[Rfam]
RNA sequence: UCUUCUUUCAAAGGGGAGUAGCGUUCAGGGUAAUACCUGAAAACAAAGUCGUCAUUUCAUGGAUUUUCUUCCAUCGGCUUUGUUGGCAUGAACGGAUUUGUAAUACAUGCUC
Numbered sequence: 001u002c003u004u005c006u007u008u009c010a011a012a013g014g015g016g017a018g019u020a021g022c023g024u025u026c027a028g029g030g031u032a033a034u035a036c037c038u039g040a041a042a043a044c045a046a047a048g049u050c051g052u053c054a055u056u057u058c059a060u061g062g063a064u065u066u067u068c069u070u071c072c073a074u075c076g077g078c079u080u081u082g083u084u085g086g087c088a089u090g091a092a093c094g095g096a097u098u099u100g101u102a103a104u105a106c107a108u109g110c111u112c
Base pairs, nucleotide, nucleotide: 025040026039027038042084043083044082045081046080047079048078049077050076051075059074060073061072062071063070
Dot-bracket structure: ........................(((..........))).((((((((((.......(((((......)))))))))))))))............................

The record is a 112-nucleotide RNA sequence from Metabacillus litoralis, which matches "Manganese Mn2+ riboswitch aptamer (yybP-ykoY)" in Rfam. The literature on the family includes a 2001 paper in Curr Biol by Argaman et al., "Novel small RNA-encoding genes in the intergenic regions of Escherichia coli". The match comes from Rfam's covariance-model search (52 bits). Rfam's curators write: This RNA was originally discovered in E. coli during a large scale screen and was named SraF. The family was later found to exist upstream of related families of protein genes in many bacteria, including the the yybP and ykoK genes in B. subtilis. The specific functions of these proteins are unknown, but this structured RNA element may be involved in their genetic regulation as a riboswitch.